[Rfam]
RNA sequence: CGGGGUGUAGCGCAGCCUGGUAGCGCACCUGAAUGGGGUUCAGGUGGUCGACGGUUCAAAUCCGUCCACCCCGA
Numbered sequence: 001c002g003g004g005g006u007g008u009a010g011c012g013c014a015g016c017c018u019g020g021u022a023g024c025g026c027a028c029c030u031g032a033a034u035g036g037g038g039u040u041c042a043g044g045u046g047g048u049c050g051a052c053g054g055u056u057c058a059a060a061u062c063c064g065u066c067c068a069c070c071c072c073g074a
Base pairs, nucleotide, nucleotide: 001073002072003071004070005069006068007067010026011025012024013023028044029043030042031041032040050066051065052064053063054062
The family of this 74-nucleotide sequence from Dehalogenimonas alkenigignens is "tRNA". It scores 64 bits against the family's covariance model. Lineage of the source: Bacteria > Bacillati > Dehalococcoidales > Dehalococcoidaceae > Dehalogenimonas. Rfam links the family to the GO term triplet codon-amino acid adaptor activity.